[Rfam]
RNA sequence: AUAAGGGGAUCUUCGACUAAAUUCCGACACGUCCUGUGUCGAACGUCGAAGUCACCACAUCCUGUGGA
Numbered sequence: 001a002u003a004a005g006g007g008g009a010u011c012u013u014c015g016a017c018u019a020a021a022u023u024c025c026g027a028c029a030c031g032u033c034c035u036g037u038g039u040c041g042a043a044c045g046u047c048g049a050a051g052u053c054a055c056c057a058c059a060u061c062c063u064g065u066g067g068a
Base pairs, nucleotide, nucleotide: 011051012050013049014048015047016046017045026040027039028038029037030036055067056066057065058064
A member of the RNA family "Bacillaceae-1 RNA" from Lentibacillus populi, 68 nucleotides long. The family has 95 seed sequences and 5,721 matches in Rfam 15.1. By type it is a small RNA.